[Rfam]
RNA: Glycine riboswitch aptamer
Organism: Sporosarcina limicola
RNA sequence: AUGAUUGUAUGGGGAGAGCACGCUUGGGCGUCGCCGAAGGAGCAAGUAACUGAAGUUAUGAAUCUCUCAGGUAACAAGACUCGUACAUGACG
Numbered sequence: 001a002u003g004a005u006u007g008u009a010u011g012g013g014g015a016g017a018g019c020a021c022g023c024u025u026g027g028g029c030g031u032c033g034c035c036g037a038a039g040g041a042g043c044a045a046g047u048a049a050c051u052g053a054a055g056u057u058a059u060g061a062a063u064c065u066c067u068c069a070g071g072u073a074a075c076a077a078g079a080c081u082c083g084u085a086c087a088u089g090a091c092g
Base pairs, nucleotide, nucleotide: 006087007086008085009084010083011082012081013080020031021030022029023028033072034071035070036068037067040066041065042064046059047058048057049056050055